c-di-GMP-I riboswitch aptamer: a 95-nucleotide RNA sequence from Domibacillus iocasae. The organism belongs to Domibacillus, within Bacteria.

[Rfam]
RNA sequence: AAGUGAAAAAGGCAAACUAUGGGAAACUAUAGGACGCAAAGCCAUGGGCCUGUAUCAUGUUAACUAGUUAACGUGAAUGGUAGCCGGUUACCACA
Dot-bracket structure: ...........((...((((((....))))))...))..((((..(((((....(((((((((....)))))))))..)))..))))))......
A search with the family's covariance model found it, with a score of 67 bits.